A member of the RNA family "Streptomyces RNA 6106" from Streptomyces fructofermentans, 85 nucleotides long. Identified by deep sequencing of transcriptome at the end of exponential growth phase. Appears smaller on northern blot than sequencing transcript. This indicates processing step. Streptomyces specific. By type it is a small RNA.

RNA sequence: ACGCCGUCCUGUGCGGCGCGCGUGCUCCGCUCAACGGGGCCGGACCGGGGGUGGUGCCGUGUCGGCGCAGCACCACCCCCGUGCC
Numbered sequence: 001a002c003g004c005c006g007u008c009c010u011g012u013g014c015g016g017c018g019c020g021c022g023u024g025c026u027c028c029g030c031u032c033a034a035c036g037g038g039g040c041c042g043g044a045c046c047g048g049g050g051g052u053g054g055u056g057c058c059g060u061g062u063c064g065g066c067g068c069a070g071c072a073c074c075a076c077c078c079c080c081g082u083g084c085c
Stems, first nucleotide, its partner, number of pairs: 002018006021042002025038001027037003046081012059068003